[Rfam]
RNA: ctRNA
RNA sequence: AGAGAGACUUCCUUGACGGUAACGUUUUGGGGGUCUUUUUCUUUUGC
Numbered sequence: 001a002g003a004g005a006g007a008c009u010u011c012c013u014u015g016a017c018g019g020u021a022a023c024g025u026u027u028u029g030g031g032g033g034u035c036u037u038u039u040u041c042u043u044u045u046g047c
Stems, first nucleotide, its partner, number of pairs: 005036008015026004